Rfam assigns this 73-nucleotide sequence from Desulfomonile tiedjei to the family "tRNA". The match comes from Rfam's covariance-model search (62 bits). The organism belongs to Desulfomonile tiedjei, within Bacteria. Transfer RNA (tRNA) molecules are approximately 80 nucleotides in length.

Nucleotides: 073
Base pairs, nucleotide, nucleotide: 001072002071003070004069005068006067007066010025011024012023013022027043028042029041030040031039049065051063052062053061
Number, partner (000 for none) and nucleotide at each position: 001072g002071g003070g004069g005068c006067u007066g008000u009000a010025g011024c012023u013022c014000a015000g016000u017000u018000g019000g020000g021000a022013g023012a024011g025010c026000g027043c028042u029041u030040g031039a032000a033000u034000g035000g036000c037000a038000u039031u040030c041029a042028a043027g044000a045000g046000g047000u048000c049065g050000u051063c052062g053061g054000u055000u056000c057000g058000a059000u060000c061053c062052c063051g064000u065049c066007c067006a068005g069004c070003u071002c072001c073000a